Notes: Shown here is a 142-nucleotide RNA from Nannospalax galili, a member of the family "Small nucleolar RNA SNORA67". U67 belongs to the H/ACA class of snoRNAs which are thought to guide the sites of modification of uridines to pseudouridines. The match comes from Rfam's covariance-model search (130 bits). Lineage of the source: Eukaryota > Opisthokonta > Muroidea > Spalacidae > Nannospalax. By type it is an H/ACA-box small nucleolar RNA.
RNA sequence: GUCCAAGGUGAGUCCCUCUCCAAAGGGCCAACCAAAGCCCUUCUCAGGAGUGUAGCAACUUGGAAGAAAGCCUGGCAUGUGUAAGGUCUUUGGGGAACAAGGGAUGCAUACUUCCGUUGCUUCACUUUGGCUGCCUACAUGC
Numbered sequence: 001g002u003c004c005a006a007g008g009u010g011a012g013u014c015c016c017u018c019u020c021c022a023a024a025g026g027g028c029c030a031a032c033c034a035a036a037g038c039c040c041u042u043c044u045c046a047g048g049a050g051u052g053u054a055g056c057a058a059c060u061u062g063g064a065a066g067a068a069a070g071c072c073u074g075g076c077a078u079g080u081g082u083a084a085g086g087u088c089u090u091u092g093g094g095g096a097a098c099a100a101g102g103g104a105u106g107c108a109u110a111c112u113u114c115c116g117u118u119g120c121u122u123c124a125c126u127u128u129g130g131c132u133g134c135c136u137a138c139a140u141g142c
Base pairs, nucleotide, nucleotide: 002064003063004062005061006060007059009057010056019049020048021047023042024041025040026039027038028037075132078130085123091116092115094113095112